A member of the RNA family "Bacterial RNase P class B" from Weissella ceti, 372 nucleotides long.

RNA sequence: GUUGGUGGGUAAUUGCGUGUCGCUUUAAGCGGCAUGAGGAAAGUCCAUGCUCGCACUGACUGUGAUGUCAGUAGUGUUCGUGCUAGCUGAAAAAAUAAGGCUAGGCAGCUUGUAAAAGUUGACGGCCAACGAACGACCUAAAGACUUUGUCCAUGGUUUAAUAGUUGUGAAAGUGCCACAGUGACGAGCCAAUCAAGAAAUUGAUUGGGUGGAACGCGGUAAACCCCUCGAGCGGGCAACCCAAACUUUGGUAGGGGCGCUUGACCUAGCGAAUUGAAGUGAUGGUCGGGGAGACAGUAAUGUCUGAGAUAGAUGAUUACCACUACAAAUAAUCUGCCACAUUAUUUGUAGAACAAAACAUGGCUUACAGCU
Dot-bracket structure: ...(((((((((((.((((((.........))))))....[[[.[[[[[(((((((((((......)))))).....(((.(((((((..........))))))(((((((....)))))).)((.((((....((((....((.....))...)))).....)))).....(((((...........((((((((....)))))))).........)))..))))).))))))))...(((...........)))...(((((((.................))))))).(((((....))))).........))))))).(((((((((((.......))))))))))).......]]]]]]]].).)))
By type it is a ribozyme. From the family's description: Ribonuclease P (RNase P) is a ubiquitous endoribonuclease, found in archaea, bacteria and eukarya as well as chloroplasts and mitochondria.